A member of the RNA family "Burkholderia RNA 14" from Paraburkholderia ultramafica, 173 nucleotides long. Co-purified with Hfq, expression confirmed by Northern blot. Putative functional homologue of PA-SraF. Overlaps coding sequence. The family has 3 seed sequences and 98 matches in Rfam 15.1.

RNA sequence: GUCGGCGUCGUCACCGUCCAGCCGACCACCGUGCCGGUCGUCACCGAACUGCCCGGCCGCACCAGCGCUUUCCUCGUCGCGCAAGUGCGCGCACGGGUCGACGGCAUCGUGCUGCGUCGCGAGUUCACGGAAGGCAGCCAGGUGACAGCCGGCCAGCGUCUGUACAAGAUCGA
Numbered sequence: 001g002u003c004g005g006c007g008u009c010g011u012c013a014c015c016g017u018c019c020a021g022c023c024g025a026c027c028a029c030c031g032u033g034c035c036g037g038u039c040g041u042c043a044c045c046g047a048a049c050u051g052c053c054c055g056g057c058c059g060c061a062c063c064a065g066c067g068c069u070u071u072c073c074u075c076g077u078c079g080c081g082c083a084a085g086u087g088c089g090c091g092c093a094c095g096g097g098u099c100g101a102c103g104g105c106a107u108c109g110u111g112c113u114g115c116g117u118c119g120c121g122a123g124u125u126c127a128c129g130g131a132a133g134g135c136a137g138c139c140a141g142g143u144g145a146c147a148g149c150c151g152g153c154c155a156g157c158g159u160c161u162g163u164a165c166a167a168g169a170u171c172g173a
Base pairs, nucleotide, nucleotide: 004053005052006051007050008047009046010045011043013041014040016038018037019036021034022033023031024030055150056149057148061143062142063141065139067135068134072133074131075130079092080091081090082089094121095120097118099116100115102114103113104112105111106110157172158171159169160168161167